[Rfam]
RNA sequence: AAACGCUGACCGUGUGGGUUCGACUCCCACUCAGAAAUUACUAUAUAACAGUAUGGUCGUAAUCCCUUUAAAAUGAAGGGCGUUCGGACGCGGGUUCGAUUCCCGCCACGUCCACCACAUGCAUCUUAUAGCCAGAACUGAAUCUGGUAAGAGGUAGUCAGCCACAUUGAACCUUUCAGUAGAGCGCUGACCUAAGUCGCAUGUAGUAACCCGCUUUAGGGUGCAAGUGAUGGGCGUGCCAAGGUUUCGACGGGCGAAGAUAGUGGAGAAGGCGACUAGCCAGAGUAGGCUCUAAAACUAAAACCUAAAGUAACUGCCAACGCAAAUACUUUCGAUUACGCACUAGCUGCCUAAUCCCAAGCACAUCCAGCACUUGGUCACCGAACGCUGGGCAAUAGCAGUCCUUGGACUGUCUAUUGU
Numbered sequence: 001a002a003a004c005g006c007u008g009a010c011c012g013u014g015u016g017g018g019u020u021c022g023a024c025u026c027c028c029a030c031u032c033a034g035a036a037a038u039u040a041c042u043a044u045a046u047a048a049c050a051g052u053a054u055g056g057u058c059g060u061a062a063u064c065c066c067u068u069u070a071a072a073a074u075g076a077a078g079g080g081c082g083u084u085c086g087g088a089c090g091c092g093g094g095u096u097c098g099a100u101u102c103c104c105g106c107c108a109c110g111u112c113c114a115c116c117a118c119a120u121g122c123a124u125c126u127u128a129u130a131g132c133c134a135g136a137a138c139u140g141a142a143u144c145u146g147g148u149a150a151g152a153g154g155u156a157g158u159c160a161g162c163c164a165c166a167u168u169g170a171a172c173c174u175u176u177c178a179g180u181a182g183a184g185c186g187c188u189g190a191c192c193u194a195a196g197u198c199g200c201a202u203g204u205a206g207u208a209a210c211c212c213g214c215u216u217u218a219g220g221g222u223g224c225a226a227g228u229g230a231u232g233g234g235c236g237u238g239c240c241a242a243g244g245u246u247u248c249g250a251c252g253g254g255c256g257a258a259g260a261u262a263g264u265g266g267a268g269a270a271g272g273c274g275a276c277u278a279g280c281c282a283g284a285g286u287a288g289g290c291u292c293u294a295a296a297a298c299u300a301a302a303a304c305c306u307a308a309a310g311u312a313a314c315u316g317c318c319a320a321c322g323c324a325a326a327u328a329c330u331u332u333c334g335a336u337u338a339c340g341c342a343c344u345a346g347c348u349g350c351c352u353a354a355u356c357c358c359a360a361g362c363a364c365a366u367c368c369a370g371c372a373c374u375u376g377g378u379c380a381c382c383g384a385a386c387g388c389u390g391g392g393c394a395a396u397a398g399c400a401g402u403c404c405u406u407g408g409a410c411u412g413u414c415u416a417u418u419g420u
Base pairs, nucleotide, nucleotide: 055277056276057275058274059273065272066271068269069268073264074263081256082255083254084253085252086251090106091105092104093103094102107238108237109236110235111234112233113232278291279290280289281288361375366392367391368390369389370388371387395417396416397415398414399412400411401410402409403408
Dot-bracket structure: ......................................................(((((.....((.((...((......((((((...(((((.......)))))(((((((......................................................................................................................)))))))............))))))......))...)).)))))))((((......)))).....................................................................[....((((((...]...........))))))..(((((((((....))))).))))...
The family of this 420-nucleotide RNA from Xanthomonas phage XacN1 is "Betaproteobacteria transfer-messenger RNA". It scores 108 bits against the family's covariance model. Rfam describes the family as follows. Bacterial tmRNA, also known as 10Sa RNA or SsrA, is named for its dual tRNA and mRNA-like properties. Its role is to liberate the mRNA from a stalled ribosome. A reference for the family is Williams and Bartel (1996), "Phylogenetic analysis of tmRNA secondary structure", RNA.